Background
Repression of heat shock gene expression (ROSE) element: a 98-nucleotide RNA. A search with the family's covariance model found it, with a score of 48 bits. Rfam classes the family as an RNA thermoregulator. This family represents a 5' UTR cis-regulatory element found in heat shock mRNAs and is known as the ROSE (repression of heat shock gene expression) element. The ROSE element is a negative regulator of heat shock gene expression. The secondary structure is thought to be regulated by temperature. This regulation blocks access to the ribosome binding site under normal conditions. On this family, see Balsiger et al., J Bacteriol 2004: "Replicon-specific regulation of small heat shock genes in Agrobacterium tumefaciens". Its family is annotated with response to temperature stimulus and regulation of translation in the Gene Ontology.
RNA sequence: CCGGACGCUCGAUUGAGGUCCGGCUCCGAGGGGCGUCCGGCGCUCCGGGCGCACCUCAUUCAACCAUGUUGCUUUGAGAAAGGACAUGACGAUGAACG
Dot-bracket structure: ((((((.((......))))))))......((.(((((((......))))))).))(((((....((((((.(((.....)))))))))..)))))...